[Rfam]
RNA sequence: ACCUGUUACGGGUCUCCACCAGAAGGUGCACCGUCAUCCCCACACACCUCCCUGCUCUUACCUCAACAGGAGCCCAGUUCGAGUCUCGUGGUGUCCUCACUAAUCCACUCACUCGGGUAACCAGUGAUGCUGGAAGGACCUAAGCAAUGAAUGCAAUCUGAUGAGGGAAGAAAUUCUGCAGUCGGGUAUUCACCACGGGACGGCGGCGCUGGAUUACUCUCGUUGCUGGUUGGAAGGUGUGUUGGUGGGCUGGUGUAUCGACUGGUAUU
Numbered sequence: 001a002c003c004u005g006u007u008a009c010g011g012g013u014c015u016c017c018a019c020c021a022g023a024a025g026g027u028g029c030a031c032c033g034u035c036a037u038c039c040c041c042a043c044a045c046a047c048c049u050c051c052c053u054g055c056u057c058u059u060a061c062c063u064c065a066a067c068a069g070g071a072g073c074c075c076a077g078u079u080c081g082a083g084u085c086u087c088g089u090g091g092u093g094u095c096c097u098c099a100c101u102a103a104u105c106c107a108c109u110c111a112c113u114c115g116g117g118u119a120a121c122c123a124g125u126g127a128u129g130c131u132g133g134a135a136g137g138a139c140c141u142a143a144g145c146a147a148u149g150a151a152u153g154c155a156a157u158c159u160g161a162u163g164a165g166g167g168a169a170g171a172a173a174u175u176c177u178g179c180a181g182u183c184g185g186g187u188a189u190u191c192a193c194c195a196c197g198g199g200a201c202g203g204c205g206g207c208g209c210u211g212g213a214u215u216a217c218u219c220u221c222g223u224u225g226c227u228g229g230u231u232g233g234a235a236g237g238u239g240u241g242u243u244g245g246u247g248g249g250c251u252g253g254u255g256u257a258u259c260g261a262c263u264g265g266u267a268u269u
Stems, first nucleotide, its partner, number of pairs: 001013003018266005027257007034249002039245002042242008051233002060230003064225004069220004074212005079206003083201009100137002104134002106129001109127005115122002140144001148192007158185005167176003
Fungal signal recognition particle RNA: a 269-nucleotide RNA from Plenodomus tracheiphilus. Clan: SRP clan. The base pairs follow the family's consensus structure, which is taken from published work. The organism belongs to Plenodomus tracheiphilus, within Eukaryota.